[Rfam]
RNA sequence: UGGAAAGAGGUUCUAGCUCAACCCUCUAUAAAAAACUAAGGAAAA
Numbered sequence: 001u002g003g004a005a006a007g008a009g010g011u012u013c014u015a016g017c018u019c020a021a022c023c024c025u026c027u028a029u030a031a032a033a034a035a036c037u038a039a040g041g042a043a044a045a
Stems, first nucleotide, its partner, number of pairs: 006027005016037001